[Rfam]
RNA sequence: UGUCUGUGAUGAUAUCCUGAAGGCUUGUUUCUCAAUACAUUCGCAGUGGCCGCCUAAAGCUUUCGCCUUUCGCCGGGCUUGAGAGCUGAUGCAGCUGUUAUCCUUCCUUGGAUGUCUGAGAUU
Number, nucleotide and partner (000 for none) at each position: 001u000002g122003u121004c120005u000006g000007u000008g000009a000010u000011g000012a000013u000014a000015u000016c000017c000018u000019g000020a000021a000022g000023g000024c000025u000026u000027g000028u000029u000030u000031c000032u000033c000034a000035a000036u000037a000038c000039a000040u000041u000042c000043g000044c000045a000046g000047u000048g000049g000050c000051c000052g000053c000054c000055u000056a000057a000058a000059g086060c085061u084062u083063u082064c081065g000066c000067c000068u000069u000070u000071c000072g000073c000074c000075g000076g000077g000078c000079u000080u000081g064082a063083g062084a061085g060086c059087u000088g000089a000090u000091g000092c000093a000094g000095c000096u000097g000098u000099u000100a000101u000102c000103c000104u000105u000106c000107c000108u000109u000110g000111g000112a000113u000114g000115u000116c000117u000118g000119a000120g004121a003122u002123u000